Rfam assigns this 91-nucleotide RNA to the family "Small nucleolar RNA SNORD116".
The family's RNA type in Rfam is C/D-box small nucleolar RNA.
Rfam's curators put it in the seed alignment.
The literature on the family includes a 2000 paper in Proc Natl Acad Sci U S A by Cavaille et al., "Identification of brain-specific and imprinted small nucleolar RNA genes exhibiting an unusual genomic organization".
Rfam links the family to the GO terms nucleolus and RNA processing.

[Rfam]
RNA sequence: AUCUAAUGAUGAUUCCCAGUCAAACAUUCCUUGGAAAAGCUGAACAAAAUGAGUGAAAACUCUGUACUGCCACUCUCAUCGGAACUGAGGU
Dot-bracket structure: (((.....................(((((.(((...........)))...))))).................................)))
Numbered sequence: 001a002u003c004u005a006a007u008g009a010u011g012a013u014u015c016c017c018a019g020u021c022a023a024a025c026a027u028u029c030c031u032u033g034g035a036a037a038a039g040c041u042g043a044a045c046a047a048a049a050u051g052a053g054u055g056a057a058a059a060c061u062c063u064g065u066a067c068u069g070c071c072a073c074u075c076u077c078a079u080c081g082g083a084a085c086u087g088a089g090g091u
Stems, first nucleotide, its partner, number of pairs: 001091003025055005031047003